[Rfam]
RNA sequence: UCGAAGUUUCAUCUACAAUGGAUAAGAUUUUUGUCUUAGUUUAAUACGAAAGGUGAAACAAAUGUAGCAAUAACCCCUGUCUUCUGCUUUAGCAAGACUGGUUUGCUACUUU
Numbered sequence: 001u002c003g004a005a006g007u008u009u010c011a012u013c014u015a016c017a018a019u020g021g022a023u024a025a026g027a028u029u030u031u032u033g034u035c036u037u038a039g040u041u042u043a044a045u046a047c048g049a050a051a052g053g054u055g056a057a058a059c060a061a062a063u064g065u066a067g068c069a070a071u072a073a074c075c076c077c078u079g080u081c082u083u084c085u086g087c088u089u090u091a092g093c094a095a096g097a098c099u100g101g102u103u104u105g106c107u108a109c110u111u112u
Stems, first nucleotide, its partner, number of pairs: 008022005061112002064109007076101002079098005

Source information
The family of this 112-nucleotide RNA from Musa balbisiana is "Plastid-psbA-1 3UTR RNA". Clan: Plastid-psbA 3UTR RNA clan. Plastid psbA-1 is a non-coding RNA (ncRNA) present in plastids. It was identified in inverted repeat sequences in the 3 prime untranslate region (3UTR) of photosystem II quinone-binding protein (psbA).